Rfam assigns this 82-nucleotide RNA to the family "Proteo-phage-1 RNA".
RNA sequence: UCGCAGCCUAAGCGACCCGCGAGGGGCAUUAGGACAGGGGUUGGUCGGUGAGUACCCUGAUUCGGAAAUAACCCCGACAGCU
Number, nucleotide and partner (000 for none) at each position: 001u015002c014003g013004c012005a000006g000007c033008c032009u031010a030011a029012g004013c003014g002015a001016c025017c024018c023019g000020c000021g000022a000023g018024g017025g016026g000027c000028a000029u011030u010031a009032g008033g007034a000035c059036a058037g057038g056039g000040g055041u000042u000043g000044g078045u077046c076047g075048g074049u000050g000051a000052g000053u000054a000055c040056c038057c037058u036059g035060a000061u000062u000063c000064g000065g000066a000067a000068a000069u000070a000071a000072c000073c000074c048075c047076g046077a045078c044079a000080g000081c000082u000
It is annotated as a small RNA.